Annotation
The record is a 90-nucleotide RNA sequence from Microctonus hyperodae, which matches "mir-283 microRNA precursor family" in Rfam. For this family Rfam cites "MicroRNAs of Bombyx mori identified by Solexa sequencing" (Liu et al., BMC Genomics, 2010). A search with the family's covariance model found it, with a score of 64 bits.
[Rfam]
Nucleotides: 090
Stems, first nucleotide, its partner, number of pairs: 013082005021074011034062008
Number, partner (000 for none) and nucleotide at each position: 001000u002000g003000a004000u005000c006000u007000g008000g009000u010000g011000g012000c013082g014081u015080a016079g017078u018000c019000a020000a021074a022073u023072a024071u025070c026069a027068g028067c029066u030065g031064g032000u033000a034062a035061u036060u037059c038058u039057g040056g041055g042000a043000a044000u045000a046000u047000u048000a049000g050000a051000a052000u053000a054000a055041c056040u057039c058038a059037g060036g061035a062034u063000u064031c065030u066029g067028g068027c069026u070025g071024g072023u073022a074021u075000c076000u077000u078017g079016c080015u081014a082013c083000g084000g085000a086000c087000u088000a089000g090000g
Gene Ontology terms of the family: RISC complex and miRNA-mediated post-transcriptional gene silencing. The base pairs follow the family's consensus structure, which was predicted with WAR.